[Rfam]
Background
The record is a 71-nucleotide sequence from Candidatus Jettenia caeni, which matches "int-alpA RNA" in Rfam.
RNA sequence: UUAAGGACUAGCUUGACGAAGCGAAAAGUCAUUUCCUUAGAUGACCUGUCCUUAAUUCUUUAUUACUAAGG
Numbered sequence: 001u002u003a004a005g006g007a008c009u010a011g012c013u014u015g016a017c018g019a020a021g022c023g024a025a026a027a028g029u030c031a032u033u034u035c036c037u038u039a040g041a042u043g044a045c046c047u048g049u050c051c052u053u054a055a056u057u058c059u060u061u062a063u064u065a066c067u068a069a070g071g
Base pairs, nucleotide, nucleotide: 001055002054003053004052005051006050007049008048011022012021013020014019028045029044030043031042032041035071036070037069038068039067
Dot-bracket structure: ((((((((..((((....)))).....(((((..[[[[[.)))))..))))))))...........]]]]]
Lineage of the source: Bacteria > Pseudomonadati > Planctomycetota > Candidatus Brocadiales > Candidatus Jettenia.